The record is a 107-nucleotide RNA from Glaciimonas soli, which matches "Manganese Mn2+ riboswitch aptamer (yybP-ykoY)" in Rfam. For this family Rfam cites "Novel small RNA-encoding genes in the intergenic regions of Escherichia coli" (Argaman et al., Curr Biol, 2001). From the family's description: This RNA was originally discovered in E. coli during a large scale screen and was named SraF. The family was later found to exist upstream of related families of protein genes in many bacteria, including the the yybP and ykoK genes in B. subtilis. The specific functions of these proteins are unknown, but this structured RNA element may be involved in their genetic regulation as a riboswitch.
[Rfam]
RNA sequence: CCUUAGGGGAGUAGCCUGCUUUGUCAGUCAAUAAAUGACAAAGAGCGCAUGUCAACAUACUUGGCACUUUUUGCCAUGGCAUGCGCAACCAUCUGGUUUGAUUGGUU
Numbered sequence: 001c002c003u004u005a006g007g008g009g010a011g012u013a014g015c016c017u018g019c020u021u022u023g024u025c026a027g028u029c030a031a032u033a034a035a036u037g038a039c040a041a042a043g044a045g046c047g048c049a050u051g052u053c054a055a056c057a058u059a060c061u062u063g064g065c066a067c068u069u070u071u072u073g074c075c076a077u078g079g080c081a082u083g084c085g086c087a088a089c090c091a092u093c094u095g096g097u098u099u100g101a102u103u104g105g106u107u
Stems, first nucleotide, its partner, number of pairs: 019043006045086010062076005